Shown here is a 110-nucleotide sequence from Vagococcus silagei, a member of the family "Guanidine-I riboswitch aptamer". It scores 87 bits against the family's covariance model.
[Rfam]
RNA sequence: UAUCGUGUUUUCUAGGGUUCCGUUAAGAAGUAACAUUUUUAAGUCUGGUCCAAGUGAAAACCCACAGUUUUAGCUAACUGUGCACACGGAAGGAGAAAAGCCUGGGAGAU
Numbered sequence: 001u002a003u004c005g006u007g008u009u010u011u012c013u014a015g016g017g018u019u020c021c022g023u024u025a026a027g028a029a030g031u032a033a034c035a036u037u038u039u040u041a042a043g044u045c046u047g048g049u050c051c052a053a054g055u056g057a058a059a060a061c062c063c064a065c066a067g068u069u070u071u072a073g074c075u076a077a078c079u080g081u082g083c084a085c086a087c088g089g090a091a092g093g094a095g096a097a098a099a100g101c102c103u104g105g106g107a108g109a110u
Base pairs, nucleotide, nucleotide: 007061008060009059010058011057012056015051016050020048021047022045023042024041025040026039027038028037063082064081065080066079067078068077069076085105087108091103092102093101